Shown here is an 89-nucleotide RNA sequence from Entomomonas asaccharolytica, a member of the family "t44 RNA". The literature on the family includes a 2002 paper in Nucleic Acids Res by Tjaden et al., "Transcriptome analysis of Escherichia coli using high-density oligonucleotide probe arrays". About the family: This family consists of a number of bacterial RNA genes of between 135 and 170 bases in length. The t44 gene has been identified in several species of enteric bacteria but homologs have also been identified in Pseudomonas and Coxiella species. The t44 gene is found between the map and rpsB genes in all species in the full alignment apart from Shigella flexneri. The function of this RNA is unknown. Rfam classes the family as a small RNA. The family's consensus secondary structure was predicted with LocARNA.

[Rfam]
RNA sequence: GCUACUUUUUAAACAAACCACACAUAUAUCGACACAAUGUUCUGGGUGCCUUUAACUAGGUUGAAUAUUGGGAUAUAUGGAGGCUUAAC
Numbered sequence: 001g002c003u004a005c006u007u008u009u010u011a012a013a014c015a016a017a018c019c020a021c022a023c024a025u026a027u028a029u030c031g032a033c034a035c036a037a038u039g040u041u042c043u044g045g046g047u048g049c050c051u052u053u054a055a056c057u058a059g060g061u062u063g064a065a066u067a068u069u070g071g072g073a074u075a076u077a078u079g080g081a082g083g084c085u086u087a088a089c
Stems, first nucleotide, its partner, number of pairs: 023079008035070008048061004